[Rfam]
RNA sequence: UAAGCUUAGCUGGUUGAACACGGGUCAAAUAUAUCGCACGAUUGACGCAUUUGGUCCCCUUCAACCAGCUGUAGUUG
Numbered sequence: 001u002a003a004g005c006u007u008a009g010c011u012g013g014u015u016g017a018a019c020a021c022g023g024g025u026c027a028a029a030u031a032u033a034u035c036g037c038a039c040g041a042u043u044g045a046c047g048c049a050u051u052u053g054g055u056c057c058c059c060u061u062c063a064a065c066c067a068g069c070u071g072u073a074g075u076u077g
Stems, first nucleotide, its partner, number of pairs: 003075001008070011022056002025054006
The record is a 77-nucleotide RNA sequence from Apis mellifera, which matches "mir-133 microRNA precursor family" in Rfam. The base pairs follow the family's consensus structure, which was predicted with PFOLD. The sequence is in the family's curated seed alignment. Rfam describes the family as follows. mir-133 was first experimentally characterised in mouse and homologues have since been discovered in several other species. The mature sequence is excised from the 3' arm of the hairpin. Gene Ontology terms of the family: RISC complex and miRNA-mediated post-transcriptional gene silencing. The family has 127 seed sequences and 3,763 matches in Rfam 15.1.